[Rfam]
RNA: Alphaproteobacteria transfer-messenger RNA
RNA sequence: CCUCUUGCCGCGAUGGCCGCAAACGCCUAUAUGCAUCGGUGCCGGAGGGCUUGCCCUUGGCUAUGGCGAUAAACGGUAAGUGGAAUAAUCGUUACGGACCCGGGGGCAGUGCCCGGCGUCUCCACCAUUCCUUCCCGAGGGCCUUGCCCAACGGAAAGUCAGGGGACGAAACAGGCUCGACGUGCGUGGUAAAGACUUGCCUUUUGCCCGGCAUUGUACCGCCGUUAUCGGGCUAAAUCACAAGUGCCAAUGAUAACACAAAGGUGCUCGCUGUCGCUGCAUAAGCGAUAAGCGCGGUUCGGGAGGGCACCGGGCAACAGAAGCCCUCCCACU
Numbered sequence: 001c002c003u004c005u006u007g008c009c010g011c012g013a014u015g016g017c018c019g020c021a022a023a024c025g026c027c028u029a030u031a032u033g034c035a036u037c038g039g040u041g042c043c044g045g046a047g048g049g050c051u052u053g054c055c056c057u058u059g060g061c062u063a064u065g066g067c068g069a070u071a072a073a074c075g076g077u078a079a080g081u082g083g084a085a086u087a088a089u090c091g092u093u094a095c096g097g098a099c100c101c102g103g104g105g106g107c108a109g110u111g112c113c114c115g116g117c118g119u120c121u122c123c124a125c126c127a128u129u130c131c132u133u134c135c136c137g138a139g140g141g142c143c144u145u146g147c148c149c150a151a152c153g154g155a156a157a158g159u160c161a162g163g164g165g166a167c168g169a170a171a172c173a174g175g176c177u178c179g180a181c182g183u184g185c186g187u188g189g190u191a192a193a194g195a196c197u198u199g200c201c202u203u204u205u206g207c208c209c210g211g212c213a214u215u216g217u218a219c220c221g222c223c224g225u226u227a228u229c230g231g232g233c234u235a236a237a238u239c240a241c242a243a244g245u246g247c248c249a250a251u252g253a254u255a256a257c258a259c260a261a262a263g264g265u266g267c268u269c270g271c272u273g274u275c276g277c278u279g280c281a282u283a284a285g286c287g288a289u290a291a292g293c294g295c296g297g298u299u300c301g302g303g304a305g306g307g308c309a310c311c312g313g314g315c316a317a318c319a320g321a322a323g324c325c326c327u328c329c330c331a332c333u
Base pairs, nucleotide, nucleotide: 041061042060043059044058045057065208066207067206068205069204075201076200077199078198079197080196081195090186091185092184094183095182096181100116101115102114103113104112117168118167119166120165121164122163123162209224210223211222212221214235216233219231220230295312296311297310298309302329303328304327305326306325307324